RNA sequence: GGCGGUUCUCCGGUGACACACCCCAGAAUCAGGCUUCUUCCUCUCUGGUUCCGGGUACAUCACCGGAGAACUGCA
Numbered sequence: 001g002g003c004g005g006u007u008c009u010c011c012g013g014u015g016a017c018a019c020a021c022c023c024c025a026g027a028a029u030c031a032g033g034c035u036u037c038u039u040c041c042u043c044u045c046u047g048g049u050u051c052c053g054g055g056u057a058c059a060u061c062a063c064c065g066g067a068g069a070a071c072u073g074c075a
Stems, first nucleotide, its partner, number of pairs: 002074002005071012020056004026051008

This 75-nucleotide sequence from Myotis lucifugus belongs to the Rfam family "mir-9223 microRNA precursor family".
Rfam 15.1 lists 14,641 matches to the family in 28 species.
The base pairs follow the family's consensus structure, which was predicted with RNAalifold.